[Rfam]
RNA sequence: AACCGUUCGCGCAACUGGCGCUCAAUCGAGGUGGCCACCACCGGGGAACGCGAACCGCGAGCACGCUCGCGUUCCGCCGCGCGCCUGGGCCUCUUGU
Numbered sequence: 001a002a003c004c005g006u007u008c009g010c011g012c013a014a015c016u017g018g019c020g021c022u023c024a025a026u027c028g029a030g031g032u033g034g035c036c037a038c039c040a041c042c043g044g045g046g047a048a049c050g051c052g053a054a055c056c057g058c059g060a061g062c063a064c065g066c067u068c069g070c071g072u073u074c075c076g077c078c079g080c081g082c083g084c085c086u087g088g089g090c091c092u093c094u095u096g097u
Stems, first nucleotide, its partner, number of pairs: 003057001005055007015045002017085005031041004076090003
ZMP/ZTP riboswitch aptamer (pfl RNA motif): a 97-nucleotide RNA sequence from Paraburkholderia diazotrophica. Pairs were carried over by alignment from the consensus structure, which is taken from published work. Taxonomically the source falls in Paraburkholderia (Bacteria, Pseudomonadati, Pseudomonadota, Burkholderiales). The match comes from Rfam's covariance-model search (49 bits).